SAM riboswitch aptamer (S box leader): a 94-nucleotide RNA from Chloroflexia bacterium SDU3-3. It scores 86 bits against the family's covariance model. The source organism's lineage runs through Bacteria, Bacillati, Chloroflexota and Chloroflexia. The SAM riboswitch is found upstream of a number of genes which code for proteins involved in methionine or cysteine biosynthesis in Gram-positive bacteria.
RNA sequence: CGCUUAUCCAGAGAGGCGGAGGGACCGGCCCGACGAAGCCUCGGCAACCCUACGGCGGGUGCCAAUUCCGGCAGGCAUUCCUGGAAGAUGAGCG
Numbered sequence: 001c002g003c004u005u006a007u008c009c010a011g012a013g014a015g016g017c018g019g020a021g022g023g024a025c026c027g028g029c030c031c032g033a034c035g036a037a038g039c040c041u042c043g044g045c046a047a048c049c050c051u052a053c054g055g056c057g058g059g060u061g062c063c064a065a066u067u068c069c070g071g072c073a074g075g076c077a078u079u080c081c082u083g084g085a086a087g088a089u090g091a092g093c094g
Stems, first nucleotide, its partner, number of pairs: 001094008013042005021031003025071004043063004048059002050055001067086001072083004